[Rfam]
RNA sequence: UAAUGCUACUAGGGGAGCCAUAGUAAAUGGCUGAGAUGAUUAAUUCAGACCCUUAUAACCUGAUUUGGUUAGUACCAACGUAGGAAAGUAGUUAUGUAAAUGU
Numbered sequence: 001u002a003a004u005g006c007u008a009c010u011a012g013g014g015g016a017g018c019c020a021u022a023g024u025a026a027a028u029g030g031c032u033g034a035g036a037u038g039a040u041u042a043a044u045u046c047a048g049a050c051c052c053u054u055a056u057a058a059c060c061u062g063a064u065u066u067g068g069u070u071a072g073u074a075c076c077a078a079c080g081u082a083g084g085a086a087a088g089u090a091g092u093u094a095u096g097u098a099a100a101u102g103u
Base pairs, nucleotide, nucleotide: 006091007090008089009088010087011053012052013051014050017031018030019029020028021027038046039045059084060083061082062081065078066077067076068075
Rfam assigns this 103-nucleotide sequence from Staphylococcus haemolyticus to the family "TPP riboswitch aptamer (THI element)". About the family: Vitamin B(1) in its active form thiamin pyrophosphate (TPP) is an essential coenzyme that is synthesised by coupling of pyrimidine and thiazole moieties in bacteria. The previously detected thiamin-regulatory element, thi box was extended, resulting in a new, highly conserved RNA secondary structure, the THI element, which is widely distributed in eubacteria and also occurs in some archaea. Analysis of operon structures identified a large number of new candidate thiamin-regulated genes, mostly transporters, in various prokaryotic organisms. The THI element is a riboswitch that directly binds to TPP to regulate gene expression through a variety of mechanisms in archaea, bacteria and eukaryotes. through a variety of mechanisms in archaea, bacteria and eukaryotes. Tandem TPP riboswitches have been reported where both TPP riboswitches respond independently to TPP. The structure of TPP riboswitch has been reported for Escherichia coli and Arabidopsis thaliana. Pairs were carried over by alignment from the consensus structure, which is taken from published work.